This 108-nucleotide RNA from Gordonia sp. YY1 belongs to the Rfam family "Actinobacteria sRNA Ms_IGR-7". The pairing is the family consensus, mapped onto this sequence. The family has 14 seed sequences and 463 matches in Rfam 15.1.
RNA sequence: UGAAAGUGCCUUCUGAGCUGGGAUGUUUUGUGUCUCAACACCACCAAUCAUCCCAGCUCAGAGGGCAUUUUUAUGUCACCGACACCCCACGCGCCUCCACGGAUCCAG
Numbered sequence: 001u002g003a004a005a006g007u008g009c010c011u012u013c014u015g016a017g018c019u020g021g022g023a024u025g026u027u028u029u030g031u032g033u034c035u036c037a038a039c040a041c042c043a044c045c046a047a048u049c050a051u052c053c054c055a056g057c058u059c060a061g062a063g064g065g066c067a068u069u070u071u072u073a074u075g076u077c078a079c080c081g082a083c084a085c086c087c088c089a090c091g092c093g094c095c096u097c098c099a100c101g102g103a104u105c106c107a108g
Stems, first nucleotide, its partner, number of pairs: 002072015018056005024050002027047001031043002